Shown here is a 114-nucleotide sequence from Pelodiscus sinensis, a member of the family "Potassium channel RNA editing signal". Lineage of the source: Eukaryota > Metazoa > Teleostomi > Archelosauria > Pelodiscus. The match comes from Rfam's covariance-model search (99 bits). Rfam's curators write: This family represents a group of sequences related to the human potassium channel Kv1.1 hairpin element which directs the efficient modification of an adenosine to inosine by an adenosine deaminase acting on RNA (ADAR). The ADAR modification causes an isoleucine/valine recoding event which lies in the ion-conducting pore of the potassium channel. It is thought that this editing event targets the process of fast inactivation and allows a more rapid recovery from inactivation at negative potentials. Pairs were carried over by alignment from the consensus structure, which is taken from published work. On this family, see Bhalla et al., Nat Struct Mol Biol 2004: "Control of human potassium channel inactivation by editing of a small mRNA hairpin".

[Rfam]
RNA sequence: CUGGGUUAUGGUGACAUGUAUCCCAAGACUUGGUCAGGCAUGCUGGUUGGGGCGCUGUGUGCCCUGGCCGGGGUACUCACUAUCGCCAUGCCGGUGCCUGUCAUCGUCAACAAC
Numbered sequence: 001c002u003g004g005g006u007u008a009u010g011g012u013g014a015c016a017u018g019u020a021u022c023c024c025a026a027g028a029c030u031u032g033g034u035c036a037g038g039c040a041u042g043c044u045g046g047u048u049g050g051g052g053c054g055c056u057g058u059g060u061g062c063c064c065u066g067g068c069c070g071g072g073g074u075a076c077u078c079a080c081u082a083u084c085g086c087c088a089u090g091c092c093g094g095u096g097c098c099u100g101u102c103a104u105c106g107u108c109a110a111c112a113a114c
Base pairs, nucleotide, nucleotide: 002113004111008107009106010105011104013102014101015100016099018097019096020095021094037077038076040074049063050062